[Rfam]
RNA sequence: CCUUCCGAGGAGCGUUGCGACCCCGCCCGGCCAUCAGCCAGACGGCGCCAGGCUCGGAAUGAAUCCAACGGCGCUCACCUGAC
Numbered sequence: 001c002c003u004u005c006c007g008a009g010g011a012g013c014g015u016u017g018c019g020a021c022c023c024c025g026c027c028c029g030g031c032c033a034u035c036a037g038c039c040a041g042a043c044g045g046c047g048c049c050a051g052g053c054u055c056g057g058a059a060u061g062a063a064u065c066c067a068a069c070g071g072c073g074c075u076c077a078c079c080u081g082a083c
Stems, first nucleotide, its partner, number of pairs: 003059006021047001023045003
Shown here is an 83-nucleotide sequence from Jeongeupia sacculi, a member of the family "SAH (S-adenosyl-L-homocysteine) riboswitch aptamer". The base pairs follow the family's consensus structure, which is taken from published work. On this family, see Wang et al., Mol Cell 2008: "Riboswitches that sense S-adenosylhomocysteine and activate genes involved in coenzyme recycling".